[Rfam]
RNA sequence: AUAAAAUACGAACAAUAAGCUCAUAUAAUCUUGAGGAUAUGGCUCAAGAGUCUCUACCAGGUUGCCGUAAACUACCUGACUAUGAGUGAAAGUGUACCUAGG
Dot-bracket structure: ..................(((((((...(((((((.......)))))))........(((((.(.......).)))))..)))))))...............